Annotation:
This 77-nucleotide RNA sequence from Alligator mississippiensis belongs to the Rfam family "Mammalian CPEB3 ribozyme".
RNA sequence: AGUCAAAUAUUUGAGGUGAUAGCAGAAGCGCUCAUGGUGUGGCCCCAUCAGAUUCCAAUGAAUCUGCAUAGUCUGCU
Numbered sequence: 001a002g003u004c005a006a007a008u009a010u011u012u013g014a015g016g017u018g019a020u021a022g023c024a025g026a027a028g029c030g031c032u033c034a035u036g037g038u039g040u041g042g043c044c045c046c047a048u049c050a051g052a053u054u055c056c057a058a059u060g061a062a063u064c065u066g067c068a069u070a071g072u073c074u075g076c077u
Base pairs, nucleotide, nucleotide: 015044016043017042021077022076023075024074025073026072028040029039030038049066050065051064052063053062054061055060
Rfam's curators write: The mammalian CPEB3 ribozyme is a self cleaving RNA located in the second intron of the CPEB3 gene which belongs to a family of genes regulating messenger RNA polyadenylation. This ribozyme is highly conserved and found only in mammals.